[Rfam]
RNA: Bacillaceae-1 RNA
Organism: Solibacillus sp. R5-41
RNA sequence: AUAUUAGGAAGUUUGCCUAUGGUCUUCGCAUCCAUGCGACAACGGCUAACUGACUUGCAUCGUGCAGG
Numbered sequence: 001a002u003a004u005u006a007g008g009a010a011g012u013u014u015g016c017c018u019a020u021g022g023u024c025u026u027c028g029c030a031u032c033c034a035u036g037c038g039a040c041a042a043c044g045g046c047u048a049a050c051u052g053a054c055u056u057g058c059a060u061c062g063u064g065c066a067g068g
Base pairs, nucleotide, nucleotide: 011050012049013048015046016045017044026039027038028037029036054068055067056066057065058064